[Rfam]
RNA sequence: AACAGAUAAAGGCAAACCAUCUGAAAGGGUGGGACGCAAAGCUUCAGGUCUAAGGUAGAUUUUUUUACUAUGAUGGCUGGGCCACCUUA
Numbered sequence: 001a002a003c004a005g006a007u008a009a010a011g012g013c014a015a016a017c018c019a020u021c022u023g024a025a026a027g028g029g030u031g032g033g034a035c036g037c038a039a040a041g042c043u044u045c046a047g048g049u050c051u052a053a054g055g056u057a058g059a060u061u062u063u064u065u066u067a068c069u070a071u072g073a074u075g076g077c078u079g080g081g082c083c084a085c086c087u088u089a
Base pairs, nucleotide, nucleotide: 012037013036017032018031019030020029021028022027041082042081043080045079046078047077048074049073050072055068056067057066058065
Dot-bracket structure: ...........((...((((((....))))))...))...(((.((((((....((((......))))...)))..)))))).......
Rfam assigns this 89-nucleotide RNA from Niallia circulans to the family "c-di-GMP-I riboswitch aptamer".